A member of the RNA family "SAM riboswitch aptamer (S box leader)" from Sulfobacillus sp. hq2, 102 nucleotides long. The source organism's lineage runs through Bacteria, Bacillota, Clostridia, Eubacteriales and Sulfobacillus.
RNA sequence: CUCUUAUCAAGAGCGGCGGAGGGACAGGCCCGAUGAAGCCCGGCAACCGGCUACCCAUGCCAAGGUGCCAAUCCCGACCUCACUUACGGGGACGGAUGAGAG
Numbered sequence: 001c002u003c004u005u006a007u008c009a010a011g012a013g014c015g016g017c018g019g020a021g022g023g024a025c026a027g028g029c030c031c032g033a034u035g036a037a038g039c040c041c042g043g044c045a046a047c048c049g050g051c052u053a054c055c056c057a058u059g060c061c062a063a064g065g066u067g068c069c070a071a072u073c074c075c076g077a078c079c080u081c082a083c084u085u086a087c088g089g090g091g092a093c094g095g096a097u098g099a100g101a102g
Stems, first nucleotide, its partner, number of pairs: 001102008013041001015040003021031003027075002042069004047065002049061003073094001078091004